[Rfam]
RNA sequence: ACUGCCCCUCGAGGCGUUGCAGGUGUGGCUGCUGUGUCACAUCUGCGUCACUAGGCGGCAGAGAGAAUCGAGGCUGUGUCUCUCGAGGCUCAGUGUUCCGACCCGUGAACGCCGGAAUGAUUAGGAGCCUGACGCG
Numbered sequence: 001a002c003u004g005c006c007c008c009u010c011g012a013g014g015c016g017u018u019g020c021a022g023g024u025g026u027g028g029c030u031g032c033u034g035u036g037u038c039a040c041a042u043c044u045g046c047g048u049c050a051c052u053a054g055g056c057g058g059c060a061g062a063g064a065g066a067a068u069c070g071a072g073g074c075u076g077u078g079u080c081u082c083u084c085g086a087g088g089c090u091c092a093g094u095g096u097u098c099c100g101a102c103c104c105g106u107g108a109a110c111g112c113c114g115g116a117a118u119g120a121u122u123a124g125g126a127g128c129c130u131g132a133c134g135c136g
Base pairs, nucleotide, nucleotide: 002061003060004059005058006057007055008054009053011051013049014048015047019046020045021044022043024041025040026039027038028037029036071130072129073128074127075126077124088118090116091115093113094111095110096109097108098107
Small nucleolar RNA SNORA17: a 136-nucleotide RNA sequence from Chinchilla lanigera. Its Rfam clan is "SNORA17 clan". Rfam 15.1 lists 5,784 matches to the family in 673 species. Rfam classes the family as an H/ACA-box small nucleolar RNA.